[Rfam]
Group II catalytic intron D1-D4-6: a 253-nucleotide sequence.

RNA sequence: GAAGUCCCUGUCGGGUAAAGCCUAGCCAGCAGCCCGUACCGAGUGUUGCGCAACUUGCGGAGCCAAUAACGGUGAACAAAAGUUGUGAAGCGUACACAGGGAACACAGUAGGCCGCAGGGGAGACGUACCUCCCUUAAGCAAUUCAGCCUCGUUAGAGUAUAGUGCAGUUGGCGACGAUUUUAACGUAUCGGAAGCCAGAACAAAGGAAUCGUCAUGGCAAGAUUCUGGAGGGGCUGCCGGGGUCAUAGAGCG
Numbered sequence: 001g002a003a004g005u006c007c008c009u010g011u012c013g014g015g016u017a018a019a020g021c022c023u024a025g026c027c028a029g030c031a032g033c034c035c036g037u038a039c040c041g042a043g044u045g046u047u048g049c050g051c052a053a054c055u056u057g058c059g060g061a062g063c064c065a066a067u068a069a070c071g072g073u074g075a076a077c078a079a080a081a082g083u084u085g086u087g088a089a090g091c092g093u094a095c096a097c098a099g100g101g102a103a104c105a106c107a108g109u110a111g112g113c114c115g116c117a118g119g120g121g122a123g124a125c126g127u128a129c130c131u132c133c134c135u136u137a138a139g140c141a142a143u144u145c146a147g148c149c150u151c152g153u154u155a156g157a158g159u160a161u162a163g164u165g166c167a168g169u170u171g172g173c174g175a176c177g178a179u180u181u182u183a184a185c186g187u188a189u190c191g192g193a194a195g196c197c198a199g200a201a202c203a204a205a206g207g208a209a210u211c212g213u214c215a216u217g218g219c220a221a222g223a224u225u226c227u228g229g230a231g232g233g234g235c236u237g238c239c240g241g242g243g244u245c246a247u248a249g250a251g252c253g
Stems, first nucleotide, its partner, number of pairs: 012036004020030002023221001025219002039100002043097004047092002049087008059077001147244006165238006171197003176191004202232001206227006